This 107-nucleotide sequence from Drymodes brunneopygia belongs to the Rfam family "Fusobacteriales-1 RNA". The family has 13 seed sequences and 28 matches in Rfam 15.1. Rfam classes the family as a cis-regulatory element. The family's consensus secondary structure is taken from published work. Taxonomically the source falls in Drymodes (Eukaryota, Eumetazoa, Chordata, Gnathostomata).
[Rfam]
RNA sequence: AAUGAUUUUUUCCAACAUCUGCUCAAAUGUUGGAUCCAAUGAUCUUUUCCAACAUCUGCUCAAAUGUUGGAUUCAAUGAUCUUUUCCAACAUCCUCUCAAAUGUUGG
Numbered sequence: 001a002a003u004g005a006u007u008u009u010u011u012c013c014a015a016c017a018u019c020u021g022c023u024c025a026a027a028u029g030u031u032g033g034a035u036c037c038a039a040u041g042a043u044c045u046u047u048u049c050c051a052a053c054a055u056c057u058g059c060u061c062a063a064a065u066g067u068u069g070g071a072u073u074c075a076a077u078g079a080u081c082u083u084u085u086c087c088a089a090c091a092u093c094c095u096c097u098c099a100a101a102u103g104u105u106g107g
Stems, first nucleotide, its partner, number of pairs: 006021001012033007043058001049070007086107007